[Rfam]
RNA sequence: CCUACAGAAUUUAUUGGCAUUCUGUCCACCUCCAUUCCUAUUAAGAAAGGAUUAAGAAAUUUUAAUCUGAUAUCAUAUAUGGAGGUGGGCAUACUGCCAACUGAGUUCUGUUGA
Numbered sequence: 001c002c003u004a005c006a007g008a009a010u011u012u013a014u015u016g017g018c019a020u021u022c023u024g025u026c027c028a029c030c031u032c033c034a035u036u037c038c039u040a041u042u043a044a045g046a047a048a049g050g051a052u053u054a055a056g057a058a059a060u061u062u063u064a065a066u067c068u069g070a071u072a073u074c075a076u077a078u079a080u081g082g083a084g085g086u087g088g089g090c091a092u093a094c095u096g097c098c099a100a101c102u103g104a105g106u107u108c109u110g111u112u113g114a
Base pairs, nucleotide, nucleotide: 011104014100015099016098017097018096019095023091024090025089026088027087028086029085030084031083032082033081034080035079
This 114-nucleotide RNA from Olea europaea belongs to the Rfam family "MIR394 microRNA precursor family". A search with the family's covariance model found it, with a score of 90 bits. Rfam links the family to the GO terms miRNA-mediated post-transcriptional gene silencing and RISC complex. The literature on the family includes a 2004 paper in Mol Cell by Jones-Rhoades and Bartel, "Computational identification of plant microRNAs and their targets, including a stress-induced miRNA".